[Rfam]
RNA: icd-II ncRNA motif
Organism: Polynucleobacter yangtzensis
Nucleotides: 122
Stems, first nucleotide, its partner, number of pairs: 002119004011109003022076004027069002031066001034060002040057003045053002080099001082096004
Number, partner (000 for none) and nucleotide at each position: 001000c002119c003118a004117a005116u006000g007000a008000u009000u010000u011109a012108a013107a014000a015000u016000g017000g018000a019000a020000g021000a022076c023075u024074c025073g026000c027069u028068u029000c030000a031066u032000u033000g034060g035059c036000a037000a038000u039000a040057a041056g042055u043000g044000c045053g046052c047000u048000a049000a050000a051000a052046g053045c054000g055042a056041c057040u058000u059035g060034c061000a062000a063000a064000a065000u066031g067000g068028g069027g070000a071000u072000u073025u074024g075023a076022g077000g078000g079000c080099g081000a082096c083095a084094g085093g086000g087000u088000a089000a090000a091000a092000a093085c094084c095083u096082g097000a098000c099080u100000c101000u102000g103000u104000a105000a106000u107013u108012u109011u110000u111000u112000c113000a114000a115000a116005a117004u118003u119002g120000a121000g122000g